A member of the RNA family "SAM riboswitch aptamer (S box leader)" from Cerasibacillus terrae, 114 nucleotides long. The match comes from Rfam's covariance-model search (86 bits). The source organism's lineage runs through Bacteria, Bacillati, Bacilli, Bacillaceae and Cerasibacillus. Rfam's curators write: The SAM riboswitch is found upstream of a number of genes which code for proteins involved in methionine or cysteine biosynthesis in Gram-positive bacteria.
RNA sequence: UUCUUAUUACGAGUGGUGGAGGGACUGGCCCUUUGAAGCCCAGCAACCGUCAAUAGAUUUUUUCUAUUGAAAUGGUGCUAAUUCCUGCAGGAUGAUCGUCCUGGGAGAUGAGAA
Numbered sequence: 001u002u003c004u005u006a007u008u009a010c011g012a013g014u015g016g017u018g019g020a021g022g023g024a025c026u027g028g029c030c031c032u033u034u035g036a037a038g039c040c041c042a043g044c045a046a047c048c049g050u051c052a053a054u055a056g057a058u059u060u061u062u063u064c065u066a067u068u069g070a071a072a073u074g075g076u077g078c079u080a081a082u083u084c085c086u087g088c089a090g091g092a093u094g095a096u097c098g099u100c101c102u103g104g105g106a107g108a109u110g111a112g113a114a
Stems, first nucleotide, its partner, number of pairs: 001114008013041001015040003021031003025087001027085002042079004047075002050070007083106001088103006